[Rfam]
The family of this 72-nucleotide sequence from Rhipicephalus sanguineus is "mir-3931 microRNA precursor family".
RNA sequence: CGGGGCACGAUUUGUACCGACUCUUGGCUAGGUUUUACUGAAACUACUUUGAGUCGGUACGAAUCCUCUCCC
Numbered sequence: 001c002g003g004g005g006c007a008c009g010a011u012u013u014g015u016a017c018c019g020a021c022u023c024u025u026g027g028c029u030a031g032g033u034u035u036u037a038c039u040g041a042a043a044c045u046a047c048u049u050u051g052a053g054u055c056g057g058u059a060c061g062a063a064u065c066c067u068c069u070c071c072c
Stems, first nucleotide, its partner, number of pairs: 007067001009065015026048002031045006
The source organism's lineage runs through Eukaryota, Opisthokonta, Eumetazoa, Protostomia and Rhipicephalus. The family's consensus secondary structure was predicted with RNAalifold.